[Rfam]
RNA sequence: UCAGCAGGCCGGAUGGCCGCUCUGCCGCUUAGUAUUUGCGUAUGCGGCGGGGAGGAAAGUCCGGGCUCCUUGGAAGCACGGUGCCGGAUAACCUCCGGCGGGGGCGACCCUAGGGAAAGUGCCACAGAAAGCAAACCGCCUGUCUGAAGCCUUCGGGCGGAAAGCGGGUAAGGGUGAAAGGGUGCGGUAAGAGCGCACCGCGUCUUUGGCAACAAAGGCGGCAAGGCAAACCCCACCGGGAGCAAGACCGAAUAGGGGCGGCGCGGGCGAGAAAUCGCUUAUGUCUGUUUCCGGACAAGCCGCCCGGGUUGGUUGCACGAGGCGUCUCGCAAGAGACGCCCCAGAUGAAUGGCCAUCACCUCGCGCAAGCGGGGAACAGAACCCGGCUUACAGGCUUGGUGACAUG
Numbered sequence: 001u002c003a004g005c006a007g008g009c010c011g012g013a014u015g016g017c018c019g020c021u022c023u024g025c026c027g028c029u030u031a032g033u034a035u036u037u038g039c040g041u042a043u044g045c046g047g048c049g050g051g052g053a054g055g056a057a058a059g060u061c062c063g064g065g066c067u068c069c070u071u072g073g074a075a076g077c078a079c080g081g082u083g084c085c086g087g088a089u090a091a092c093c094u095c096c097g098g099c100g101g102g103g104g105c106g107a108c109c110c111u112a113g114g115g116a117a118a119g120u121g122c123c124a125c126a127g128a129a130a131g132c133a134a135a136c137c138g139c140c141u142g143u144c145u146g147a148a149g150c151c152u153u154c155g156g157g158c159g160g161a162a163a164g165c166g167g168g169u170a171a172g173g174g175u176g177a178a179a180g181g182g183u184g185c186g187g188u189a190a191g192a193g194c195g196c197a198c199c200g201c202g203u204c205u206u207u208g209g210c211a212a213c214a215a216a217g218g219c220g221g222c223a224a225g226g227c228a229a230a231c232c233c234c235a236c237c238g239g240g241a242g243c244a245a246g247a248c249c250g251a252a253u254a255g256g257g258g259c260g261g262c263g264c265g266g267g268c269g270a271g272a273a274a275u276c277g278c279u280u281a282u283g284u285c286u287g288u289u290u291c292c293g294g295a296c297a298a299g300c301c302g303c304c305c306g307g308g309u310u311g312g313u314u315g316c317a318c319g320a321g322g323c324g325u326c327u328c329g330c331a332a333g334a335g336a337c338g339c340c341c342c343a344g345a346u347g348a349a350u351g352g353c354c355a356u357c358a359c360c361u362c363g364c365g366c367a368a369g370c371g372g373g374g375a376a377c378a379g380a381a382c383c384c385g386g387c388u389u390a391c392a393g394g395c396u397u398g399g400u401g402a403c404a405u406g
Base pairs, nucleotide, nucleotide: 001402002401003400005398006397007396008395009394010393011391012357013356014355015354016353017352018351020052021051022050023049024048025047026046027045028044057389058388059387061386062385063384064383065382066242067241068240069239075290076289079238080237081236082235083234084098085097086096087095088094099113100111101110102109103108114233115232119231120230121227122226123225136173137172138169139168140167141166142165143164145162181199182198183197184196185195186194200222201220202219203218204217205216206215207214208213246314247313248312249311256305257304258303259302260301261300282297283296284295285294286293321340322339323338324337325336326335327334328333
RNA: Bacterial RNase P class A
Organism: Methyloceanibacter marginalis